[Rfam]
RNA sequence: AGCUUUUUUCGCCCAGGCGGAGCUCGACCGCAAACGGAAGUAAUGGUCCGCUAUAUCGAUGCACAUCGAGGUCGCUACGGAAUCGAGCCGAUCUGCAAGCAGUUGCCGAUUGCUCCG
Numbered sequence: 001a002g003c004u005u006u007u008u009u010c011g012c013c014c015a016g017g018c019g020g021a022g023c024u025c026g027a028c029c030g031c032a033a034a035c036g037g038a039a040g041u042a043a044u045g046g047u048c049c050g051c052u053a054u055a056u057c058g059a060u061g062c063a064c065a066u067c068g069a070g071g072u073c074g075c076u077a078c079g080g081a082a083u084c085g086a087g088c089c090g091a092u093c094u095g096c097a098a099g100c101a102g103u104u105g106c107c108g109a110u111u112g113c114u115c116c117g
Stems, first nucleotide, its partner, number of pairs: 017031004078117004089112002092109002095106004
Dot-bracket structure: ................((((.......))))..............................................((((.......((.((.((((....)))).)).)).))))

The record is a 117-nucleotide RNA sequence from an Olavius algarvensis Gamma 3 endosymbiont, which matches "ALIL pseudoknot" in Rfam. The family's RNA type in Rfam is cis-regulatory element. NCBI's taxonomy places the organism under Bacteria, Pseudomonadati, Pseudomonadota, Gammaproteobacteria. A search with the family's covariance model found it, with a score of 95 bits. Gene Ontology term of the family: positive regulation of translational frameshifting. Pairs were carried over by alignment from the consensus structure, which is taken from published work.